[Rfam]
RNA: Nitrogen stress-induced RNA 1
Organism: Brunnivagina elsteri
RNA sequence: UGGUAGAUGCACCCUGAUAAAAUAUUGCCCCGAUUGCUUUGCAGUUGGGGCUUUUUAUU
Numbered sequence: 001u002g003g004u005a006g007a008u009g010c011a012c013c014c015u016g017a018u019a020a021a022a023u024a025u026u027g028c029c030c031c032g033a034u035u036g037c038u039u040u041g042c043a044g045u046u047g048g049g050g051c052u053u054u055u056u057a058u059u
Base pairs, nucleotide, nucleotide: 002013003012004011027051028050029049030048031047032046033045034044035043036042037041